[Rfam]
Nucleotides: 127
Base pairs, nucleotide, nucleotide: 002057003056004055005054006053015044016043017042018041019039021037022036023035024034025033075119077117080115081114084111085110091106092105095104096103
Number, partner (000 for none) and nucleotide at each position: 001000c002057g003056g004055a005054g006053g007000u008000u009000u010000g011000a012000g013000a014000a015044a016043a017042u018041a019039a020000g021037g022036c023035a024034g025033u026000u027000a028000a029000a030000u031000g032000u033025a034024c035023u036022g037021c038000a039019u040000u041018u042017a043016u044015u045000g046000g047000u048000u049000a050000c051000a052000g053006c054005c055004u056003c057002c058000a059000a060000a061000a062000u063000c064000a065000a066000a067000a068000c069000u070000g071000c072000g073000a074000a075119a076000g077117c078000a079000a080115g081114u082000c083000c084111u085110g086000u087000u088000c089000c090000u091106u092105u093000g094000a095104c096103c097000u098000g099000u100000g101000u102000a103096g104095g105092a106091a107000c108000u109000c110085u111084a112000u113000u114081g115080c116000u117077g118000g119075u120000u121000g122000c123000a124000u125000a126000u127000a